Shown here is a 185-nucleotide sequence from Renibacterium salmoninarum, a member of the family "M-box riboswitch aptamer (ykoK leader)". M-box riboswitch, also know as ykoK leader is described as a metaloregulatory RNA that sense divalent metals and function as a genetic control element of genes related to divalent metal transport in bacteria. It was first reported upstream of the B.subtilis ykoK gene and genes with related functions in other bacteria. The pairing is the family consensus, mapped onto this sequence. It is one of the family's seed sequences. Lineage of the source: Bacteria > Actinomycetota > Actinomycetes > Micrococcaceae > Renibacterium salmoninarum. The literature on the family includes a 2004 paper in Proc Natl Acad Sci U S A by Barrick et al., "New RNA motifs suggest an expanded scope for riboswitches in bacterial genetic control". The family has 159 seed sequences and 1,095 matches in Rfam 15.1. Rfam links the family to the GO terms response to magnesium ion and regulation of gene expression.
RNA sequence: GCAGCACCUCGUUAGGCGAGGCUCCUGCGCGAACACAGGCCACUGAUCUGACGACAUCGAGAGAUGCCCAAGAUCAGGACAGGCCGCCUCGGCUUAAGGGGCGGUCCCAAGUGGCUUCCGGUGCCAGUAAAUAUUGCCAGCCCAGAUACGUCGCGCAGCGCCGAAGCUCUACGUGGGGGUGACUC
Numbered sequence: 001g002c003a004g005c006a007c008c009u010c011g012u013u014a015g016g017c018g019a020g021g022c023u024c025c026u027g028c029g030c031g032a033a034c035a036c037a038g039g040c041c042a043c044u045g046a047u048c049u050g051a052c053g054a055c056a057u058c059g060a061g062a063g064a065u066g067c068c069c070a071a072g073a074u075c076a077g078g079a080c081a082g083g084c085c086g087c088c089u090c091g092g093c094u095u096a097a098g099g100g101g102c103g104g105u106c107c108c109a110a111g112u113g114g115c116u117u118c119c120g121g122u123g124c125c126a127g128u129a130a131a132u133a134u135u136g137c138c139a140g141c142c143c144a145g146a147u148a149c150g151u152c153g154c155g156c157a158g159c160g161c162c163g164a165a166g167c168u169c170u171a172c173g174u175g176g177g178g179g180u181g182a183c184u185c
Stems, first nucleotide, its partner, number of pairs: 005181006011172002013097001015168003020162003025158008039115005045075005055066004082106004088100003117146002